[Rfam]
RNA sequence: GUGCGGGCACAAAAAACAACGUUUUUUGAACGUUGGCUCUGCCAGCGGCCCCAUAGGGGCGAAUAAAUCACUUUUUGUGAUUUAUGAGUAAUCAUUUACGAC
Numbered sequence: 001g002u003g004c005g006g007g008c009a010c011a012a013a014a015a016a017c018a019a020c021g022u023u024u025u026u027u028g029a030a031c032g033u034u035g036g037c038u039c040u041g042c043c044a045g046c047g048g049c050c051c052c053a054u055a056g057g058g059g060c061g062a063a064u065a066a067a068u069c070a071c072u073u074u075u076u077g078u079g080a081u082u083u084a085u086g087a088g089u090a091a092u093c094a095u096u097u098a099c100g101a102c
Stems, first nucleotide, its partner, number of pairs: 010028008031047007048060005063085009088099004
Dot-bracket structure: .........((((((((...))))))))..(((((((...)))))))(((((...)))))..(((((((((.....)))))))))..((((....))))...